[Rfam]
RNA sequence: AUAACAUUGAUGAUCUCUACAGACCUGUAAUGAUUUGUGAAAAUGAUCGCAACUCUUAACGAACAUCUAAGGGACUGAGUUAAA
Dot-bracket structure: .((((.........................................................................))))..
Small nucleolar RNA SNORD25: an 84-nucleotide RNA sequence from Capsicum baccatum.
The family's consensus secondary structure was predicted with PFOLD.
It scores 52 bits against the family's covariance model.
On this family, see Tycowski et al., Nature 1996: "A mammalian gene with introns instead of exons generating stable RNA products".
The source organism's lineage runs through Eukaryota, Tracheophyta, Euphyllophyta, eudicotyledons and Capsicum.